[Rfam]
RNA sequence: UCCGUGUCCUAAGUAGUAGUGCCGUAGUCAAGGUGCUGACUGAAAUCUCUGCCUGCGCACGGCUACUUAAUACACUGA
Numbered sequence: 001u002c003c004g005u006g007u008c009c010u011a012a013g014u015a016g017u018a019g020u021g022c023c024g025u026a027g028u029c030a031a032g033g034u035g036c037u038g039a040c041u042g043a044a045a046u047c048u049c050u051g052c053c054u055g056c057g058c059a060c061g062g063c064u065a066c067u068u069a070a071u072a073c074a075c076u077g078a
Stems, first nucleotide, its partner, number of pairs: 001078002004075004010069008019060001024056004029051002
The family of this 78-nucleotide RNA sequence from Zootermopsis nevadensis is "mir-252 microRNA precursor family". The family's consensus secondary structure was predicted with RNAalifold. A reference for the family is Li et al. (2009), "Direct sequencing and expression analysis of a large number of miRNAs in Aedes aegypti and a multi-species survey of novel mosquito miRNAs", BMC Genomics. The match comes from Rfam's covariance-model search (49 bits). The source organism's lineage runs through Eukaryota, Allotriocarida, Hexapoda, Dicondylia and Zootermopsis.